Small nucleolar RNA SNORD58: a 65-nucleotide RNA from Heterocephalus glaber. For this family Rfam cites "Purified box C/D snoRNPs are able to reproduce site-specific 2'-O-methylation of target RNA in vitro" (Galardi et al., Mol Cell Biol, 2002). Pairs were carried over by alignment from the consensus structure, which was predicted with PFOLD. It is annotated as a C/D-box small nucleolar RNA. snoRNA U58 is found in introns 1, 3 and 6 of the ribosomal protein RPL17 gene in humans. Lineage of the source: Eukaryota > Opisthokonta > Amniota > Mammalia > Heterocephalus. Rfam links the family to the GO terms RNA processing and nucleolus. The family is grouped with related families in Rfam's "SNORD58 clan".

Nucleotides: 065
Base pairs, nucleotide, nucleotide: 001064002063003062004061
Number, partner (000 for none) and nucleotide at each position: 001064u002063u003062g004061c005000u006000g007000u008000g009000a010000u011000g012000a013000c014000a015000a016000u017000c018000u019000u020000a021000g022000g023000a024000c025000a026000c027000c028000u029000u030000u031000g032000g033000a034000u035000u036000a037000g038000c039000c040000a041000u042000g043000a044000a045000a046000u047000a048000a049000a050000a051000c052000a053000u054000a055000g056000u057000c058000u059000g060000a061004g062003c063002a064001a065000c